RNA: Ribosomal protein L19 leader
RNA sequence: ACGAUAUUCCGCUGAAUAAGUUAAUUUAUUUAAGAAUGUUUG
Dot-bracket structure: ..(((((((...((((((........)))))).)))))))..